The record is a 287-nucleotide sequence from Mycena kentingensis, which matches "Nuclear RNase P" in Rfam.
By type it is a ribozyme.
The family is grouped with related families in Rfam's "RNaseP clan".
Pairs were carried over by alignment from the consensus structure, which is taken from published work.
Rfam 15.1 lists 3,848 matches to the family in 1,862 species.
About the family: Ribonuclease P (RNase P) is a ubiquitous endoribonuclease, found in archaea, bacteria and eukarya as well as chloroplasts and mitochondria. Its best characterised activity is the generation of mature 5'-ends of tRNAs by cleaving the 5'-leader elements of precursor-tRNAs. Cellular RNase Ps are ribonucleoproteins.
RNA sequence: GCAGACUCAAAGCCGCGUUUGCUUGUUCCAUACAGGACACUUGUCCUCUCUCACAAGCGGGCUAAGGUCUGAGUAUACAUGUUGCUCUUGCUUGGUUCUAGCGGGACAGUCUUUUAAAUAAGGCAGCGGGCACAAGCAAUCCGCCAUUUAUAAUGUCUUUUCGACAUUUUGGCUUGGAAUGCUCGCAGCGACUGUGCAUUGGCCUUAAUAAAGGCUAGUGUGCUUGAGUGCACUUCGGCUUGUGUUAUUUCUAACACAAAACUCGAUUCAGACUACUCUUUGUCUGC
Numbered sequence: 001g002c003a004g005a006c007u008c009a010a011a012g013c014c015g016c017g018u019u020u021g022c023u024u025g026u027u028c029c030a031u032a033c034a035g036g037a038c039a040c041u042u043g044u045c046c047u048c049u050c051u052c053a054c055a056a057g058c059g060g061g062c063u064a065a066g067g068u069c070u071g072a073g074u075a076u077a078c079a080u081g082u083u084g085c086u087c088u089u090g091c092u093u094g095g096u097u098c099u100a101g102c103g104g105g106a107c108a109g110u111c112u113u114u115u116a117a118a119u120a121a122g123g124c125a126g127c128g129g130g131c132a133c134a135a136g137c138a139a140u141c142c143g144c145c146a147u148u149u150a151u152a153a154u155g156u157c158u159u160u161u162c163g164a165c166a167u168u169u170u171g172g173c174u175u176g177g178a179a180u181g182c183u184c185g186c187a188g189c190g191a192c193u194g195u196g197c198a199u200u201g202g203c204c205u206u207a208a209u210a211a212a213g214g215c216u217a218g219u220g221u222g223c224u225u226g227a228g229u230g231c232a233c234u235u236c237g238g239c240u241u242g243u244g245u246u247a248u249u250u251c252u253a254a255c256a257c258a259a260a261a262c263u264c265g266a267u268u269c270a271g272a273c274u275a276c277u278c279u280u281u282g283u284c285u286g287c
Stems, first nucleotide, its partner, number of pairs: 001287004009280002014238001017235001021058005034047005069271005083190002095107004109124005126186006143173003240259007